[Rfam]
RNA: c-di-GMP-I riboswitch aptamer
Organism: Clostridiales bacterium PH28_bin88
RNA sequence: GUUGAAUAUUGGCAAACCCGUCGAAAGGCGGGGACGCAAAGCCAUGGGUCUACAGCCGACAAGGCCAUGAUCGCCAGGUUGCCGGU
Numbered sequence: 001g002u003u004g005a006a007u008a009u010u011g012g013c014a015a016a017c018c019c020g021u022c023g024a025a026a027g028g029c030g031g032g033g034a035c036g037c038a039a040a041g042c043c044a045u046g047g048g049u050c051u052a053c054a055g056c057c058g059a060c061a062a063g064g065c066c067a068u069g070a071u072c073g074c075c076a077g078g079u080u081g082c083c084g085g086u
Base pairs, nucleotide, nucleotide: 012037013036017032018031019030020029021028022027040080041079042078043077045076046075047074048071049070050069055065056064057063